[Rfam]
Shown here is a 344-nucleotide RNA from Sphingorhabdus pulchriflava, a member of the family "Alphaproteobacteria transfer-messenger RNA". The base pairs follow the family's consensus structure, which is taken from published work. Taxonomically the source falls in Sphingorhabdus (Bacteria, Pseudomonadati, Sphingomonadales, Sphingorhabdaceae). It scores 232 bits against the family's covariance model. Rfam links the family to the GO term RNA catabolic process. The family's RNA type in Rfam is non-coding RNA gene. On this family, see Williams and Bartel, RNA 1996: "Phylogenetic analysis of tmRNA secondary structure".
RNA sequence: UCACUUCCCAUUCACCCAAAACCGCCUAUAUAGGUCGCGUUCGUUUCGGCGGACUAUGGCGAUAAAUUGCGGCGUGCAAUAGGCACAGCGGACCCGGGGGCGGUACCCGGCAGCUCCACCAUAACCCCUGAAAUUCAGGGGAUUUUGACGGGGCUGAACUAGGAUCGACGUGUGUUGAAAGACGCUGUUUUUGCCCGGCAUGAAUAAGCCGUGAAAUGGUUCAAAACUCAUAAGUGCCAACGAUAACGAAGCACUUGCUCUCGCAGCAUAAUCUCGGGCCUCACGGUCUAGGAUUAUUCUAAAAGAACGCGGCCGAACCGGCCGGGCAACAGAAAGGUUACAGC
Numbered sequence: 001u002c003a004c005u006u007c008c009c010a011u012u013c014a015c016c017c018a019a020a021a022c023c024g025c026c027u028a029u030a031u032a033g034g035u036c037g038c039g040u041u042c043g044u045u046u047c048g049g050c051g052g053a054c055u056a057u058g059g060c061g062a063u064a065a066a067u068u069g070c071g072g073c074g075u076g077c078a079a080u081a082g083g084c085a086c087a088g089c090g091g092a093c094c095c096g097g098g099g100g101c102g103g104u105a106c107c108c109g110g111c112a113g114c115u116c117c118a119c120c121a122u123a124a125c126c127c128c129u130g131a132a133a134u135u136c137a138g139g140g141g142a143u144u145u146u147g148a149c150g151g152g153g154c155u156g157a158a159c160u161a162g163g164a165u166c167g168a169c170g171u172g173u174g175u176u177g178a179a180a181g182a183c184g185c186u187g188u189u190u191u192u193g194c195c196c197g198g199c200a201u202g203a204a205u206a207a208g209c210c211g212u213g214a215a216a217u218g219g220u221u222c223a224a225a226a227c228u229c230a231u232a233a234g235u236g237c238c239a240a241c242g243a244u245a246a247c248g249a250a251g252c253a254c255u256u257g258c259u260c261u262c263g264c265a266g267c268a269u270a271a272u273c274u275c276g277g278g279c280c281u282c283a284c285g286g287u288c289u290a291g292g293a294u295u296a297u298u299c300u301a302a303a304a305g306a307a308c309g310c311g312g313c314c315g316a317a318c319c320g321g322c323c324g325g326g327c328a329a330c331a332g333a334a335a336g337g338u339u340a341c342a343g344c
Stems, first nucleotide, its partner, number of pairs: 039054005058195005069188007084174003088171003094110005111156007196211004201223003310324004315341001317339001319337001